RNA: Bacterial RNase P class B
Organism: Streptococcus cristatus
RNA sequence: AUUUUUGGAUAAUCGCGUGAAGAUUUGAUAUUUUCAUGAGGAAAGUCCAUGCUAGCACCGGCUGUGAUGCUGGUAGUGUUUGUGCUAGGCGAAACAAUAAGCCUAGGGACGGAGCAAUCCGUUACGGCGACUGAAAAGGCUAAGUCUUUAGAUAGGUCUGAAUAGGUCUGAAAGUGCCACAGUGACGUAGUUCUUCUGGAAACAGAAGAAGUGGAACGCGGUAAACCCCUCAAGCUAGCAACCCAAACUUUGGUCGGGGCACGGAAUGCGUGGAAACGAACAUAGCAUUCUGACUGGAAACAGUAGACAGAUGAUUAUCGAAGGAGAUGGUACCUAGUCAUUUCUGGAACAAAACAUGGCUUAUAGAA
Numbered sequence: 001a002u003u004u005u006u007g008g009a010u011a012a013u014c015g016c017g018u019g020a021a022g023a024u025u026u027g028a029u030a031u032u033u034u035c036a037u038g039a040g041g042a043a044a045g046u047c048c049a050u051g052c053u054a055g056c057a058c059c060g061g062c063u064g065u066g067a068u069g070c071u072g073g074u075a076g077u078g079u080u081u082g083u084g085c086u087a088g089g090c091g092a093a094a095c096a097a098u099a100a101g102c103c104u105a106g107g108g109a110c111g112g113a114g115c116a117a118u119c120c121g122u123u124a125c126g127g128c129g130a131c132u133g134a135a136a137a138g139g140c141u142a143a144g145u146c147u148u149u150a151g152a153u154a155g156g157u158c159u160g161a162a163u164a165g166g167u168c169u170g171a172a173a174g175u176g177c178c179a180c181a182g183u184g185a186c187g188u189a190g191u192u193c194u195u196c197u198g199g200a201a202a203c204a205g206a207a208g209a210a211g212u213g214g215a216a217c218g219c220g221g222u223a224a225a226c227c228c229c230u231c232a233a234g235c236u237a238g239c240a241a242c243c244c245a246a247a248c249u250u251u252g253g254u255c256g257g258g259g260c261a262c263g264g265a266a267u268g269c270g271u272g273g274a275a276a277c278g279a280a281c282a283u284a285g286c287a288u289u290c291u292g293a294c295u296g297g298a299a300a301c302a303g304u305a306g307a308c309a310g311a312u313g314a315u316u317a318u319c320g321a322a323g324g325a326g327a328u329g330g331u332a333c334c335u336a337g338u339c340a341u342u343u344c345u346g347g348a349a350c351a352a353a354a355c356a357u358g359g360c361u362u363a364u365a366g367a368a
Stems, first nucleotide, its partner, number of pairs: 004368003007364001008319007016038006043362003047359005052238005057074006080233003084229001085106006107125001108123006126228002129168004137159004144153003174226002176222003191210008242258003262292007293304004323345009